[Rfam]
RNA sequence: CCUCGAGGACGACCUCGAGGAUGACUUCUAGGACAAUUUCGAGGACAACCUCG
Numbered sequence: 001c002c003u004c005g006a007g008g009a010c011g012a013c014c015u016c017g018a019g020g021a022u023g024a025c026u027u028c029u030a031g032g033a034c035a036a037u038u039u040c041g042a043g044g045a046c047a048a049c050c051u052c053g
Base pairs, nucleotide, nucleotide: 001020002019003018004017005016006015007014008013040053041052042051043050044049
RNA: Guanidine-II riboswitch aptamer (mini-ykkC)
Organism: Ixodes scapularis